[Rfam]
Nucleotides: 110
Base pairs, nucleotide, nucleotide: 001110002109004107005106006105007104008103013041015040016039017038021031022030023029025084027082028081042076043075044074045073047072048071050067051066052065053064054063080102085099086098087097088096089095090094
Number, partner (000 for none) and nucleotide at each position: 001110c002109u003000u004107u005106u006105a007104u008103c009000a010000a011000g012000a013041a014000u015040g016039g017038u018000g019000g020000a021031g022030g023029g024000a025084c026000u027082g028081g029023c030022c031021c032000u033000u034000u035000g036000a037000a038017g039016c040015c041013u042076a043075g044074c045073a046000a047072c048071a049000g050067c051066u052065a053064g054063c055000a056000g057000u058000c059000a060000u061000u062000a063054g064053c065052u066051a067050g068000a069000a070000u071048u072047g073045u074044g075043c076042u077000a078000a079000a080102u081028c082027c083000u084025g085099c086098a087097g088096g089095a090094g091000a092000u093000u094090u095089u096088c097087c098086u099085g100000a101000g102080a103008g104007a105006u106005a107004a108000c109002g110001g